[Rfam]
RNA sequence: AGGACCCAUUUCGUUUGGGUCCUGGGUCAGGAGCCAAUUGUCUUGGGUCCUGCAUCGGGACCUAAUCCUCUUGGAUCCUUUGCCAGGACCCAAGGUUCUUGGGUCUU
Numbered sequence: 001a002g003g004a005c006c007c008a009u010u011u012c013g014u015u016u017g018g019g020u021c022c023u024g025g026g027u028c029a030g031g032a033g034c035c036a037a038u039u040g041u042c043u044u045g046g047g048u049c050c051u052g053c054a055u056c057g058g059g060a061c062c063u064a065a066u067c068c069u070c071u072u073g074g075a076u077c078c079u080u081u082g083c084c085a086g087g088a089c090c091c092a093a094g095g096u097u098c099u100u101g102g103g104u105c106u107u
Stems, first nucleotide, its partner, number of pairs: 001107008014094011029079004034074004043065008

This 107-nucleotide sequence from Populus trichocarpa belongs to the Rfam family "MIR6450 microRNA precursor family". Rfam 15.1 lists 53 matches to the family in 7 species. Rfam links the family to the GO terms miRNA-mediated post-transcriptional gene silencing and RISC complex.